[Rfam]
RNA sequence: UUUACCAUUUAUUUGUUGUUCUAGUCUCUCAGUGAUAGGAGCAGUUAUAUGCAUGUGAUAAAAUAAUAUUGGGCCAAUGUAAAUUGAGAUGAAUUGUGUUUUGUCUUUUCUACAUGGUCUAGACAUUG
Numbered sequence: 001u002u003u004a005c006c007a008u009u010u011a012u013u014u015g016u017u018g019u020u021c022u023a024g025u026c027u028c029u030c031a032g033u034g035a036u037a038g039g040a041g042c043a044g045u046u047a048u049a050u051g052c053a054u055g056u057g058a059u060a061a062a063a064u065a066a067u068a069u070u071g072g073g074c075c076a077a078u079g080u081a082a083a084u085u086g087a088g089a090u091g092a093a094u095u096g097u098g099u100u101u102u103g104u105c106u107u108u109u110c111u112a113c114a115u116g117g118u119c120u121a122g123a124c125a126u127u128g
Base pairs, nucleotide, nucleotide: 003058006055007054008053015045016044017043018042019041020040021039022037023036025035026034069122070121071120072119073118074117075116076115078114079113080112081111086107087106088105089104090103091102092101093100
Rfam assigns this 128-nucleotide sequence from Mesocricetus auratus to the family "Small nucleolar RNA SNORA20". By type it is an H/ACA-box small nucleolar RNA. It scores 123 bits against the family's covariance model. The family has 17 seed sequences and 437 matches in Rfam 15.1. About the family: ACA20 is a member of the H/ACA class of snoRNA that guide the sites of modification of uridines to pseudouridines. Gene Ontology terms of the family: RNA processing and nucleolus.